Rfam assigns this 357-nucleotide part of an RNA from Methanobrevibacter ruminantium to the family "Archaeal large subunit ribosomal RNA". Its Rfam clan is "LSU clan". The sequence is in the family's curated seed alignment. Pairs were carried over by alignment from the consensus structure, which is taken from published work. The family has 91 seed sequences and 2,955 matches in Rfam 15.1. Its family is annotated with ribosome and structural constituent of ribosome in the Gene Ontology.
RNA sequence: UAAGGUAAACUAGCUAAGGGAAAUCGGCAAAAUGGCCCCGUAACUUUGGGAGAAGGGGUGCCAGCCAUGUGAAUGGCUGGUCUCAGUGACCAGGGGGGCCCGACUGUUUAAUAAAAACAUAGCUCUCUGCUAGCCUGAAAAGGUGUGUACAGAGGGCGACACCUGCCCAGUGCUGGCACGUGAAGCUUCGGUUCAACGGAGUGAAGCGCCAGUAAACGGCGGGGGUAACUAUAACCCUCUUAAGGUAGCGAAAUGCCUUGUCGGAUAAGUACCGACCUGCAUGAAUGGUAGAACGAGGUCCCCACUGUCCCUAGCUAGAUCUUAGUGAACCUGCUGUUCUGGUGAACAAGCCAGAGA
Number, nucleotide and partner (000 for none) at each position: 001u324002a323003a322004g321005g000006u000007a000008a000009a000010c318011u317012a316013g315014c314015u313016a312017a000018g310019g309020g308021a000022a000023a000024u000025c000026g000027g000028c000029a000030a000031a000032a000033u000034g000035g059036c058037c057038c056039c055040g000041u000042a000043a000044c049045u000046u000047u000048g000049g044050g000051a000052g000053a000054a000055g039056g038057g037058g036059u035060g081061c080062c079063a078064g077065c076066c075067a074068u073069g000070u000071g000072a000073a068074u067075g066076g065077c064078u063079g062080g061081u060082c086083u000084c000085a000086g082087u000088g000089a000090c000091c000092a000093g000094g303095g302096g301097g300098g299099c298100c297101c295102g294103a000104c000105u119106g118107u117108u000109u000110a000111a000112u000113a000114a000115a000116a000117a107118c106119a105120u000121a000122g157123c156124u155125c154126u153127c152128u151129g150130c147131u000132a000133g144134c143135c142136u141137g000138a000139a000140a000141a136142g135143g134144u133145g000146u000147g130148u000149a000150c129151a128152g127153a126154g125155g124156g123157c122158g000159a000160c000161a289162c288163c287164u000165g220166c219167c218168c000169a000170g217171u216172g213173c212174u211175g210176g209177c000178a000179c208180g207181u206182g000183a000184a000185g000186c201187u200188u199189c198190g197191g000192u000193u000194c000195a000196a000197c190198g189199g188200a187201g186202u000203g000204a000205a000206g181207c180208g179209c176210c175211a174212g173213u172214a000215a000216a171217c170218g167219g166220c165221g239222g238223g237224g236225g235226u234227a000228a000229c000230u000231a000232u000233a000234a226235c225236c224237c223238u222239c221240u244241u000242a000243a000244g240245g000246u000247a000248g000249c000250g000251a000252a000253a000254u000255g000256c000257c000258u000259u000260g276261u275262c274263g273264g272265a000266u000267a000268a000269g000270u000271a000272c264273c263274g262275a261276c260277c000278u000279g000280c000281a000282u000283g000284a000285a000286u000287g163288g162289u161290a000291g000292a000293a000294c102295g101296a000297g100298g099299u098300c097301c096302c095303c094304a000305c000306u000307g000308u020309c019310c018311c000312u016313a015314g014315c013316u012317a011318g010319a000320u000321c004322u003323u002324a001325g000326u000327g000328a000329a000330c000331c000332u000333g000334c000335u000336g000337u000338u355339c354340u353341g352342g351343u000344g000345a000346a000347c000348a000349a000350g000351c342352c341353a340354g339355a338356g000357a000